[Rfam]
RNA sequence: GUUGUCAAGUAGAAGCCAUCCGCUUCUCACCUUACGGCCUUCGUCGCUAAGGUAUCUUCUGGUCCUGAGCUUAGUGUGUGCUCUUGAUUGUUUAGAAGACGGGUGGUUAUUCAUCCGUCUUUUUUCUAUUAC
Numbered sequence: 001g002u003u004g005u006c007a008a009g010u011a012g013a014a015g016c017c018a019u020c021c022g023c024u025u026c027u028c029a030c031c032u033u034a035c036g037g038c039c040u041u042c043g044u045c046g047c048u049a050a051g052g053u054a055u056c057u058u059c060u061g062g063u064c065c066u067g068a069g070c071u072u073a074g075u076g077u078g079u080g081c082u083c084u085u086g087a088u089u090g091u092u093u094a095g096a097a098g099a100c101g102g103g104u105g106g107u108u109a110u111u112c113a114u115c116c117g118u119c120u121u122u123u124u125u126c127u128a129u130u131a132c
Stems, first nucleotide, its partner, number of pairs: 011027006029053003035046004098119009
RNA: Ribosomal protein L20 leader
Organism: Desulfosporosinus metallidurans